The family of this 123-nucleotide sequence from Stenotrophomonas koreensis is "Xanthomonadaceae sRNA asX1". The source organism's lineage runs through Bacteria, Pseudomonadota, Lysobacterales, Lysobacteraceae and Stenotrophomonas. For this family Rfam cites "Genome-wide transcriptome analysis of the plant pathogen Xanthomonas identifies sRNAs with putative virulence functions" (Schmidtke et al., Nucleic Acids Res, 2011). By type it is a small RNA.
[Rfam]
RNA sequence: CACUCGCCCUGGCCAUCGCGCAUAUCCAGGCGCGGAGCCGGAAAUGGAACGGGGGCCGGCUACGGCGCAGGGCGGGGAAGCUGGAGGGUCGGCAGUGCAUCAUGCGCUGCCGGCCCUUGUUGU
Numbered sequence: 001c002a003c004u005c006g007c008c009c010u011g012g013c014c015a016u017c018g019c020g021c022a023u024a025u026c027c028a029g030g031c032g033c034g035g036a037g038c039c040g041g042a043a044a045u046g047g048a049a050c051g052g053g054g055g056c057c058g059g060c061u062a063c064g065g066c067g068c069a070g071g072g073c074g075g076g077g078a079a080g081c082u083g084g085a086g087g088g089u090c091g092g093c094a095g096u097g098c099a100u101c102a103u104g105c106g107c108u109g110c111c112g113g114c115c116c117u118u119g120u121u122g123u
Stems, first nucleotide, its partner, number of pairs: 003076009012066002016035005036061006045052001084118016